[Rfam]
RNA sequence: GAGUUCUAACCAGUUCAACUGUCGGGAUCACAUGCUGAACCUCUUUGGUUCCUUUAUCCUGAGGAAAGUCCCCGGAGACAGGGCGGAAAGCGUCGCAUUAUGAUGAUGCAGGCUGUGAUGGUUUCGUAGGGGAUGUAACCUGCGCGAAAAUCUAUCACUAAGCGUUGCUCAGAGCAAAGUGGAUGUAUGAAAGACGAAAUUGUCUAACAAAAUGGGGCUCACUCGGUUUAGAUCU
Numbered sequence: 001g002a003g004u005u006c007u008a009a010c011c012a013g014u015u016c017a018a019c020u021g022u023c024g025g026g027a028u029c030a031c032a033u034g035c036u037g038a039a040c041c042u043c044u045u046u047g048g049u050u051c052c053u054u055u056a057u058c059c060u061g062a063g064g065a066a067a068g069u070c071c072c073c074g075g076a077g078a079c080a081g082g083g084c085g086g087a088a089a090g091c092g093u094c095g096c097a098u099u100a101u102g103a104u105g106a107u108g109c110a111g112g113c114u115g116u117g118a119u120g121g122u123u124u125c126g127u128a129g130g131g132g133a134u135g136u137a138a139c140c141u142g143c144g145c146g147a148a149a150a151u152c153u154a155u156c157a158c159u160a161a162g163c164g165u166u167g168c169u170c171a172g173a174g175c176a177a178a179g180u181g182g183a184u185g186u187a188u189g190a191a192a193g194a195c196g197a198a199a200u201u202g203u204c205u206a207a208c209a210a211a212a213u214g215g216g217g218c219u220c221a222c223u224c225g226g227u228u229u230a231g232a233u234c235u
Stems, first nucleotide, its partner, number of pairs: 002235002005232004009227003014191004018186002022062007037051005067219002070217004082094004095109006111156002115151002123149001124147004130140002193204004